[Rfam]
RNA sequence: CGAUGAAAACGGCAAAUCUGUUGAAAAAUGGAGACGCAAAACCACGGGCCUAACGUAAUAAUGCCAAGGUAGCCGAGUUACCAUC
Numbered sequence: 001c002g003a004u005g006a007a008a009a010c011g012g013c014a015a016a017u018c019u020g021u022u023g024a025a026a027a028a029u030g031g032a033g034a035c036g037c038a039a040a041a042c043c044a045c046g047g048g049c050c051u052a053a054c055g056u057a058a059u060a061a062u063g064c065c066a067a068g069g070u071a072g073c074c075g076a077g078u079u080a081c082c083a084u085c
Stems, first nucleotide, its partner, number of pairs: 012037002017032006040079003045075003048070003055064003